[Rfam]
RNA sequence: AGUAAUGUAAAGGGGUGCUUAUAUUAAUAGGCUGAGAUAGGAAUGUUAUUUCUGACCCUAAGAACCUGAUUUGGGUAAUUCCAACGGAGGGAUUUGGCUAAUUUGUUAU
Number, nucleotide and partner (000 for none) at each position: 001a000002g000003u000004a000005a000006u097007g000008u000009a094010a093011a059012g058013g057014g056015g000016u000017g032018c031019u030020u029021a028022u000023a000024u000025u000026a000027a000028u021029a020030g019031g018032c017033u000034g000035a000036g000037a000038u000039a053040g052041g051042a050043a049044u000045g000046u000047u000048a000049u043050u042051u041052c040053u039054g000055a000056c014057c013058c012059u011060a000061a000062g000063a000064a000065c090066c089067u088068g000069a000070u000071u084072u083073g082074g081075g000076u000077a000078a000079u000080u000081c074082c073083a072084a071085c000086g000087g000088a067089g066090g065091g000092a000093u010094u009095u000096g000097g006098c000099u000100a000101a000102u000103u000104u000105g000106u000107u000108a000109u000
This 109-nucleotide sequence from Tissierella praeacuta belongs to the Rfam family "TPP riboswitch aptamer (THI element)". The match comes from Rfam's covariance-model search (70 bits). The family's consensus secondary structure is taken from published work. Rfam links the family to the GO term thiamine pyrophosphate binding. Lineage of the source: Bacteria > Bacillati > Tissierellia > Tissierella > Tissierella praeacuta.